[Rfam]
About this RNA: This 127-nucleotide RNA from Helianthus annuus belongs to the Rfam family "MIR162_1 microRNA precursor family".
RNA sequence: UAGAGGAUCACUGGAUUCAGCGGUUCAUCGAUCUGUUCCAUAAUCCUAAUGAUUGAAUUUCAUACGACGAUUGAGAGAGGUGGGAAAUGGAAUCGAUCGAUAAACCUCUGCAUCCAGUGUUCUUCCU
Numbered sequence: 001u002a003g004a005g006g007a008u009c010a011c012u013g014g015a016u017u018c019a020g021c022g023g024u025u026c027a028u029c030g031a032u033c034u035g036u037u038c039c040a041u042a043a044u045c046c047u048a049a050u051g052a053u054u055g056a057a058u059u060u061c062a063u064a065c066g067a068c069g070a071u072u073g074a075g076a077g078a079g080g081u082g083g084g085a086a087a088u089g090g091a092a093u094c095g096a097u098c099g100a101u102a103a104a105c106c107u108c109u110g111c112a113u114c115c116a117g118u119g120u121u122c123u124u125c126c127u
Stems, first nucleotide, its partner, number of pairs: 013115003018110003022106004027101007036092006
It scores 85 bits against the family's covariance model. Its Rfam clan is "MIR167 microRNA precursor clan".